[Rfam]
The record is a 67-nucleotide RNA sequence from Salibacterium salarium, which matches "Bacillaceae-1 RNA" in Rfam. Taxonomically the source falls in Salibacterium (Bacteria, Bacillati, Bacillota, Bacillaceae). The family's consensus secondary structure is taken from published work.
RNA sequence: AGAACAGGACGUUCGACGAAAAGCGUCACGUCCUGAGGCAACACCGAACGGACUUGCAUCCUGCAAU
Numbered sequence: 001a002g003a004a005c006a007g008g009a010c011g012u013u014c015g016a017c018g019a020a021a022a023g024c025g026u027c028a029c030g031u032c033c034u035g036a037g038g039c040a041a042c043a044c045c046g047a048a049c050g051g052a053c054u055u056g057c058a059u060c061c062u063g064c065a066a067u
Stems, first nucleotide, its partner, number of pairs: 011049005025039003029035001054066004